[Rfam]
RNA sequence: CGUCCUGCCACUCCACUCGGAUCGUCCGGCACGUACCUGCCGGUGGAGGAGAUAACC
Numbered sequence: 001c002g003u004c005c006u007g008c009c010a011c012u013c014c015a016c017u018c019g020g021a022u023c024g025u026c027c028g029g030c031a032c033g034u035a036c037c038u039g040c041c042g043g044u045g046g047a048g049g050a051g052a053u054a055a056c057c
Stems, first nucleotide, its partner, number of pairs: 009049001011048005026043006
Source information
Rfam assigns this 57-nucleotide RNA from Corynebacterium mendelii to the family "msiK RNA". Rfam 15.1 lists 1,374 matches to the family in 1,364 species. A search with the family's covariance model found it, with a score of 54 bits.